Annotation:
This 95-nucleotide RNA from Parapedobacter sp. SGR-10 belongs to the Rfam family "TPP riboswitch aptamer (THI element)". Vitamin B(1) in its active form thiamin pyrophosphate (TPP) is an essential coenzyme that is synthesised by coupling of pyrimidine and thiazole moieties in bacteria. The base pairs follow the family's consensus structure, which is taken from published work.
RNA sequence: UACAAGUGCAAGGGGUGCUUAAUUUUUAGGCUGAGAAAAAACCCUUAUUACCUGAACUGGAUAAUGCCAGCGUAGGAAAAUGCAUUUUAUAUAAU
Numbered sequence: 001u002a003c004a005a006g007u008g009c010a011a012g013g014g015g016u017g018c019u020u021a022a023u024u025u026u027u028a029g030g031c032u033g034a035g036a037a038a039a040a041a042c043c044c045u046u047a048u049u050a051c052c053u054g055a056a057c058u059g060g061a062u063a064a065u066g067c068c069a070g071c072g073u074a075g076g077a078a079a080a081u082g083c084a085u086u087u088u089a090u091a092u093a094a095u
Base pairs, nucleotide, nucleotide: 006083007082008081011045012044013043014042016039017031018030019029020028021027051076052075053074054073057070058069059068060067